azaaromatic riboswitch aptamer (yjdF RNA): a 128-nucleotide RNA sequence from Lacrimispora xylanisolvens.
The source organism's lineage runs through Bacteria, Bacillota, Clostridia, Lachnospiraceae and Lacrimispora.
The match comes from Rfam's covariance-model search (57 bits).
[Rfam]
RNA sequence: GAAAGCAAAGAUAAAAACACAGCCCAUGGCAUCUGCCAUGGAGAUCCGGUUGGUAGUCCGGACGGAAACGGUUUUUCAUCGUUUCUAAGUAGCCCUCCUCCUGGUCGUCCGUUCUUUGUGGAAACAAG
Numbered sequence: 001g002a003a004a005g006c007a008a009a010g011a012u013a014a015a016a017a018c019a020c021a022g023c024c025c026a027u028g029g030c031a032u033c034u035g036c037c038a039u040g041g042a043g044a045u046c047c048g049g050u051u052g053g054u055a056g057u058c059c060g061g062a063c064g065g066a067a068a069c070g071g072u073u074u075u076u077c078a079u080c081g082u083u084u085c086u087a088a089g090u091a092g093c094c095c096u097c098c099u100c101c102u103g104g105u106c107g108u109c110c111g112u113u114c115u116u117u118g119u120g121g122a123a124a125c126a127a128g
Stems, first nucleotide, its partner, number of pairs: 005119007045062005064086009097104002